[Rfam]
RNA sequence: GGUUGGGUUUUUAUUAUAAAUAAAACUUUCAAGAUUAGGUUCUUUUGGGUGAAAGACC
Number, nucleotide and partner (000 for none) at each position: 001g000002g000003u032004u031005g030006g027007g026008u025009u024010u023011u022012u000013a000014u000015u000016a000017u000018a000019a000020a000021u000022a011023a010024a009025a008026c007027u006028u000029u000030c005031a004032a003033g000034a000035u000036u000037a000038g000039g058040u000041u056042c055043u054044u053045u052046u000047g000048g000049g000050u000051g000052a045053a044054a043055g042056a041057c000058c039
The family of this 58-nucleotide RNA sequence from Lactobacillus sp. LL6 is "Na+ riboswitch aptamer (DUF1646)".
Rfam links the family to the GO terms regulation of gene expression and sodium ion binding.
The base pairs follow the family's consensus structure, which is taken from published work.
A reference for the family is White et al. (2022), "Na(+) riboswitches regulate genes for diverse physiological processes in bacteria", Nat Chem Biol.
It scores 49 bits against the family's covariance model.